RNA sequence: CCGCCGGGACGGCUCGGCAUUUCAUGCACAUCCGACGGGGACGACCCUG
Numbered sequence: 001c002c003g004c005c006g007g008g009a010c011g012g013c014u015c016g017g018c019a020u021u022u023c024a025u026g027c028a029c030a031u032c033c034g035a036c037g038g039g040g041a042c043g044a045c046c047c048u049g
Base pairs, nucleotide, nucleotide: 003018004017005016006015007014008013036049037048038047039046040045

Guanidine-II riboswitch aptamer (mini-ykkC): a 49-nucleotide RNA sequence from Haematobacter massiliensis. It scores 32 bits against the family's covariance model. About the family: Simpler in structure and has fewer highly conserved nucleotide positions than the ykkC-yxkD leader. Despite this each of its two stem-loop structures directly bind free guanidine. Therefore, mini-ykkC RNA motif represents a distinct class of guanidine-sensing RNAs. The organism belongs to Haematobacter, within Bacteria.